[Rfam]
Nucleotides: 128
Base pairs, nucleotide, nucleotide: 003126004125005124006123007122008121009120010119017029018028019027031108032107033098034097035060036059037058038057055096056095063074064073065072078094079093080092081091082090100111101110102109
Number, partner (000 for none) and nucleotide at each position: 001000a002000a003126u004125g005124u006123u007122c008121u009120u010119c011000g012000g013000g014000g015000u016000a017029g018028g019027g020000u021000g022000a023000g024000a025000u026000u027019c028018c029017c030000a031108a032107c033098c034097g035060g036059c037058g038057g039000u040000a041000a042000u043000g044000a045000u046000g047000c048000a049000a050000a051000u052000c053000u054000a055096g056095c057038c058037c059036g060035c061000g062000a063074g064073c065072c066000u067000u068000u069000a070000u071000a072065g073064g074063u075000u076000g077000a078094u079093u080092u081091g082090g083000u084000g085000c086000g087000a088000u089000a090082c091081c092080a093079a094078a095056g096055c097034c098033g099000a100111c101110a102109g103000u104000a105000u106000a107032g108031u109102c110101u111100g112000g113000a114000u115000g116000g117000g118000a119010g120009a121008a122007g123006a124005a125004c126003a127000a128000g
About this RNA
FMN riboswitch aptamer (RFN element): a 128-nucleotide RNA sequence from Psychrobacillus insolitus. The match comes from Rfam's covariance-model search (129 bits). The family's consensus secondary structure is taken from published work. NCBI's taxonomy places the organism under Bacteria, Bacillati, Bacilli, Bacillaceae, Psychrobacillus.